The record is a 353-nucleotide part of an RNA from Alienimonas californiensis, which matches "Bacterial small subunit ribosomal RNA" in Rfam. The base pairs follow the family's consensus structure, which is taken from published work. The family has 99 seed sequences and 42,628 matches in Rfam 15.1.

RNA sequence: GGCUUAAAGGGUGCGCAGGCGGCUGAGCAAGCCUCUCGUGAAAGACCGCGGCCCAACCGCGGGACCGCGAGGGGAACUGUUCGGCUCGAGUGGAUCAGGGGCGCGUGGAACUCCCGGUGGAGCGGUGAAAUGUGUUGAGAUCGGGAGGAACGCCGGUGGCGAAAGCGACGCGCUGGGAUCUCACUGACGCUCAGGCACGAAAGCUAGGGGAGCGAACGGGAUUAGAUACCCCGGUAGUCCUAGCCGUAAACGAUGGGCACUCGGCGGACGGGGUUUCGACCCUGUCGGCCCGAGCGAAAGCGUGAAGUGCCCCGCCUGGGGAGUAUGGUCGCAAGGCUGAAACUCAAAGGAAU
Dot-bracket structure: (((.....(.((((...(((.(((((((.(((((((((((.....((((((.....))))))...)))))))))..)))))))))...((((((((...((((((((...((((((((...(((......)))......))))))))...).......((....)).)))))))..))))).)))...)))...))))....((((((...((...((((.........))))...))))))))..........((((((..(((.((((((((....)))))))).)))...((....)).....)))))))))).(((......((((....))))....)))........
Numbered sequence: 001g002g003c004u005u006a007a008a009g010g011g012u013g014c015g016c017a018g019g020c021g022g023c024u025g026a027g028c029a030a031g032c033c034u035c036u037c038g039u040g041a042a043a044g045a046c047c048g049c050g051g052c053c054c055a056a057c058c059g060c061g062g063g064a065c066c067g068c069g070a071g072g073g074g075a076a077c078u079g080u081u082c083g084g085c086u087c088g089a090g091u092g093g094a095u096c097a098g099g100g101g102c103g104c105g106u107g108g109a110a111c112u113c114c115c116g117g118u119g120g121a122g123c124g125g126u127g128a129a130a131u132g133u134g135u136u137g138a139g140a141u142c143g144g145g146a147g148g149a150a151c152g153c154c155g156g157u158g159g160c161g162a163a164a165g166c167g168a169c170g171c172g173c174u175g176g177g178a179u180c181u182c183a184c185u186g187a188c189g190c191u192c193a194g195g196c197a198c199g200a201a202a203g204c205u206a207g208g209g210g211a212g213c214g215a216a217c218g219g220g221a222u223u224a225g226a227u228a229c230c231c232c233g234g235u236a237g238u239c240c241u242a243g244c245c246g247u248a249a250a251c252g253a254u255g256g257g258c259a260c261u262c263g264g265c266g267g268a269c270g271g272g273g274u275u276u277c278g279a280c281c282c283u284g285u286c287g288g289c290c291c292g293a294g295c296g297a298a299a300g301c302g303u304g305a306a307g308u309g310c311c312c313c314g315c316c317u318g319g320g321g322a323g324u325a326u327g328g329u330c331g332c333a334a335g336g337c338u339g340a341a342a343c344u345c346a347a348a349g350g351a352a353u
Stems, first nucleotide, its partner, number of pairs: 001316003009313001011198004018191003022085007030078002032074009046062006089185003092181005100174007107151001111147008122133003159166002203244006212238002217233004255312006263290003267286008294301002318345003327338004